Overview: A member of the RNA family "mir-1199 microRNA precursor family" from Mus musculus, 100 nucleotides long. Rfam's curators put it in the seed alignment. The source organism's lineage runs through Eukaryota, Opisthokonta, Mammalia, Glires and Mus.

RNA sequence: UGCGCCGGAGCCGGGGUCUGAGUCCCGGUCGCGCGGGCGAGGAACUCAUUGAGUUGCGCGUGCGGCCGGUGCUCAGUCGGCCCGGCUCCGGUACUCCGCU
Numbered sequence: 001u002g003c004g005c006c007g008g009a010g011c012c013g014g015g016g017u018c019u020g021a022g023u024c025c026c027g028g029u030c031g032c033g034c035g036g037g038c039g040a041g042g043a044a045c046u047c048a049u050u051g052a053g054u055u056g057c058g059c060g061u062g063c064g065g066c067c068g069g070u071g072c073u074c075a076g077u078c079g080g081c082c083c084g085g086c087u088c089c090g091g092u093a094c095u096c097c098g099c100u
Stems, first nucleotide, its partner, number of pairs: 002099003007095002010092009019075005024069002027067008037057002040054001045053003

Its family is annotated with RISC complex and miRNA-mediated post-transcriptional gene silencing in the Gene Ontology.